[Rfam]
RNA sequence: GCCAGAAUAUCAAAAAACAGAUGAGAACAAAUUUAGUAAAUACAUGUUGGUGGUGGCGUUUCAAACUACUCAAAGAGUCGUAGGGAACGAGGGCCGUAUGUAUAUAUACUAAAAAUAGGAAUAUAGGAUUCGAAGAGGUCUGUC
Dot-bracket structure: ...................................(((.((((((((.(((.....((.(((...(.(((.....))).)...))).))...))))))))))).))).....................................
Description
Bacteroidete tryptophan peptide leader RNA: a 144-nucleotide RNA from Parabacteroides sp. PM6-13. The base pairs follow the family's consensus structure, which is taken from published work. Its family is annotated with S-adenosylmethionine metabolic process and regulation of gene expression in the Gene Ontology.